[Rfam]
RNA sequence: CCUGCCGAGGAGCGCUGCAACGGGCAAGUCCCGCGAGGCUCGGCAAGGAAGGAUUGCAACAACGGCGCUCGUUCAUU
Numbered sequence: 001c002c003u004g005c006c007g008a009g010g011a012g013c014g015c016u017g018c019a020a021c022g023g024g025c026a027a028g029u030c031c032c033g034c035g036a037g038g039c040u041c042g043g044c045a046a047g048g049a050a051g052g053a054u055u056g057c058a059a060c061a062a063c064g065g066c067g068c069u070c071g072u073u074c075a076u077u
Base pairs, nucleotide, nucleotide: 003045004044005043006042007041008040021033022032023031024030
A member of the RNA family "SAH (S-adenosyl-L-homocysteine) riboswitch aptamer" from Nitrosospira briensis, 77 nucleotides long. For this family Rfam cites "Riboswitches that sense S-adenosylhomocysteine and activate genes involved in coenzyme recycling" (Wang et al., Mol Cell, 2008). The source organism's lineage runs through Bacteria, Pseudomonadota, Betaproteobacteria, Nitrosomonadaceae and Nitrosospira. Gene Ontology terms of the family: regulation of gene expression and S-adenosylhomocysteine metabolic process.